[Rfam]
RNA: Exoribonuclease-resistant RNA (xrRNA) plant-infecting virus (class 3)
Nucleotides: 046
Base pairs, nucleotide, nucleotide: 008030009029011028012026013025014044015043016042017041018040
Number, partner (000 for none) and nucleotide at each position: 001000c002000a003000c004000g005000u006000a007000g008030c009029u010000a011028g012026u013025a014044c015043c016042a017041g018040g019000u020000u021000g022000c023000a024000a025013u026012a027000c028011u029009a030008g031000a032000g033000c034000g035000u036000u037000a038000g039000u040018c041017c042016u043015g044014g045000g046000g